Description:
A member of the RNA family "Betaproteobacteria toxic small RNA" from Rubrivivax sp., 66 nucleotides long.
RNA sequence: UGUCUCCUCCACCCAUCUUUCUGGUGGAUUAAGCCCGGGUUGACUUGUCAACCUGGGUUUUUUUUG
Numbered sequence: 001u002g003u004c005u006c007c008u009c010c011a012c013c014c015a016u017c018u019u020u021c022u023g024g025u026g027g028a029u030u031a032a033g034c035c036c037g038g039g040u041u042g043a044c045u046u047g048u049c050a051a052c053c054u055g056g057g058u059u060u061u062u063u064u065u066g
Stems, first nucleotide, its partner, number of pairs: 008028006032059010
For this family Rfam cites "A vast collection of microbial genes that are toxic to bacteria" (Kimelman et al., Genome Res, 2012). The organism belongs to Rubrivivax, within Bacteria.